[Rfam]
Shown here is a 155-nucleotide sequence from Comamonas aquatica, a member of the family "FMN riboswitch aptamer (RFN element)". The match comes from Rfam's covariance-model search (103 bits). The source organism's lineage runs through Bacteria, Betaproteobacteria, Comamonadaceae, Comamonas and Comamonas aquatica.

RNA sequence: AUACGUUCUCAGGGCGGGGUGCAACUCCCCACCGGCGGUAUGCAGCCCCGUGCUGCGAGCCCGCGAGCGCUUGGCGAAGCCUGCUUCGCCAAGGUCAGCAGAUCUGGUGCGAUGCCAGAGCCGACGGUCACAGUCCGGAUGAAAGAGCAACGUGA
Numbered sequence: 001a002u003a004c005g006u007u008c009u010c011a012g013g014g015c016g017g018g019g020u021g022c023a024a025c026u027c028c029c030c031a032c033c034g035g036c037g038g039u040a041u042g043c044a045g046c047c048c049c050g051u052g053c054u055g056c057g058a059g060c061c062c063g064c065g066a067g068c069g070c071u072u073g074g075c076g077a078a079g080c081c082u083g084c085u086u087c088g089c090c091a092a093g094g095u096c097a098g099c100a101g102a103u104c105u106g107g108u109g110c111g112a113u114g115c116c117a118g119a120g121c122c123g124a125c126g127g128u129c130a131c132a133g134u135c136c137g138g139a140u141g142a143a144a145g146a147g148c149a150a151c152g153u154g155a
Stems, first nucleotide, its partner, number of pairs: 003153005008147003017029003031134002033123002035064004059121002067099002103119005125137003